[Rfam]
RNA: UnaL2 LINE 3' element
Organism: Carassius auratus
Nucleotides: 054
Stems, first nucleotide, its partner, number of pairs: 013043001014041003020036006
Number, partner (000 for none) and nucleotide at each position: 001000a002000u003000a004000g005000a006000g007000c008000a009000u010000u011000c012000a013043u014041g015040u016039a017000a018000g019000u020036c021035g022034c023033u024032u025031u026000g027000g028000a029000u030000a031025a032024a033023a034022g035021c036020g037000u038000c039016u040015g041014c042000u043013a044000a045000a046000u047000g048000c049000a050000u051000a052000a053000a054000u